Proteobacterial sRNA sX4: a 208-nucleotide sequence from Noviluteimonas dokdonensis. The base pairs follow the family's consensus structure, which was predicted with RNAalifold. The literature on the family includes a 2011 paper in Nucleic Acids Res by Schmidtke et al., "Genome-wide transcriptome analysis of the plant pathogen Xanthomonas identifies sRNAs with putative virulence functions". NCBI's taxonomy places the organism under Bacteria, Pseudomonadota, Gammaproteobacteria, Lysobacterales, Noviluteimonas dokdonensis. The family's RNA type in Rfam is small RNA.
RNA sequence: CGCGCGUGCCCGCUUCAGGAGAGGUGGCAGAGCGGUUGAAUGUACCUGACUCGAAAUCAGGCGUGCGUUUAUAGCGCACCGAGGGUUCGAAUCCCUCCCUCUCCGCCAUACGAAGAACGCCCCCUCUCGGGGGCGUUUUUUUUUGCUCGGCAACAUCCUUCAGUAGCCUGUGGAAAGCCAGGGCUACCUCCAUCCUCUGGGGGUGGGG
Numbered sequence: 001c002g003c004g005c006g007u008g009c010c011c012g013c014u015u016c017a018g019g020a021g022a023g024g025u026g027g028c029a030g031a032g033c034g035g036u037u038g039a040a041u042g043u044a045c046c047u048g049a050c051u052c053g054a055a056a057u058c059a060g061g062c063g064u065g066c067g068u069u070u071a072u073a074g075c076g077c078a079c080c081g082a083g084g085g086u087u088c089g090a091a092u093c094c095c096u097c098c099c100u101c102u103c104c105g106c107c108a109u110a111c112g113a114a115g116a117a118c119g120c121c122c123c124c125u126c127u128c129g130g131g132g133g134c135g136u137u138u139u140u141u142u143u144u145g146c147u148c149g150g151c152a153a154c155a156u157c158c159u160u161c162a163g164u165a166g167c168c169u170g171u172g173g174a175a176a177g178c179c180a181g182g183g184c185u186a187c188c189u190c191c192a193u194c195c196u197c198u199g200g201g202g203g204u205g206g207g208g
Base pairs, nucleotide, nucleotide: 003081004080006079007078008077015031016030018028032075033074037071038070039069040068041067042066043065045061046060047059048058049057094203095202096201097200098199104135105134106133107132